[Rfam]
RNA sequence: AACUAUAGUACGCCACAGCCUACUAUGUUUGAUCUUUACGAUCAGCUUUCUUAUCUGCUUCGCAAUACAAACUUAGAUUUGAUGUAUUGCAGAGUAUUGAAUAAGAACGCAUUGUCAUA
Numbered sequence: 001a002a003c004u005a006u007a008g009u010a011c012g013c014c015a016c017a018g019c020c021u022a023c024u025a026u027g028u029u030u031g032a033u034c035u036u037u038a039c040g041a042u043c044a045g046c047u048u049u050c051u052u053a054u055c056u057g058c059u060u061c062g063c064a065a066u067a068c069a070a071a072c073u074u075a076g077a078u079u080u081g082a083u084g085u086a087u088u089g090c091a092g093a094g095u096a097u098u099g100a101a102u103a104a105g106a107a108c109g110c111a112u113u114g115u116c117a118u119a
Stems, first nucleotide, its partner, number of pairs: 001029002004027007012019002057063002080117004088111003097103001
Bacteriophage Diversity-Generating Retroelement RNA: a 119-nucleotide RNA. On this family, see Handa et al., Nature 2025: "RNA control of reverse transcription in a diversity-generating retroelement". Rfam classes the family as a small RNA. The sequence is in the family's curated seed alignment.